[Rfam]
Annotation: This 76-nucleotide sequence from Aerococcus christensenii belongs to the Rfam family "L17 ribosomal protein downstream element". The source organism's lineage runs through Bacteria, Bacillota, Lactobacillales, Aerococcaceae and Aerococcus. The family's consensus secondary structure is taken from published work.
RNA sequence: UGAGUGUUAUGAUGGUAGUUAUUUAUUAAUAACUCAGUCUAGCUCUUUCACCCUUAGUCGAAAUAUCGAUUAAGGG
Numbered sequence: 001u002g003a004g005u006g007u008u009a010u011g012a013u014g015g016u017a018g019u020u021a022u023u024u025a026u027u028a029a030u031a032a033c034u035c036a037g038u039c040u041a042g043c044u045c046u047u048u049c050a051c052c053c054u055u056a057g058u059c060g061a062a063a064u065a066u067c068g069a070u071u072a073a074g075g076g
Stems, first nucleotide, its partner, number of pairs: 002045004011039003017034006051076009